[Rfam]
The family of this 65-nucleotide RNA from Sus scrofa is "mir-451 microRNA precursor family". Its family is annotated with RISC complex and miRNA-mediated post-transcriptional gene silencing in the Gene Ontology. Lineage of the source: Eukaryota > Teleostomi > Amniota > Suidae > Sus.
RNA sequence: GGGGGUGGCGAGCAAACCGUUACCAUUACUGAGUUUAGUAAUGGUAACGGUUCUCUUGCUGCACC
Numbered sequence: 001g002g003g004g005g006u007g008g009c010g011a012g013c014a015a016a017c018c019g020u021u022a023c024c025a026u027u028a029c030u031g032a033g034u035u036u037a038g039u040a041a042u043g044g045u046a047a048c049g050g051u052u053c054u055c056u057u058g059c060u061g062c063a064c065c
Stems, first nucleotide, its partner, number of pairs: 005062003009058003015052004020047012
The literature on the family includes a 2008 paper in Biochem Pharmacol by Zhu et al., "Role of MicroRNA miR-27a and miR-451 in the regulation of MDR1/P-glycoprotein expression in human cancer cells".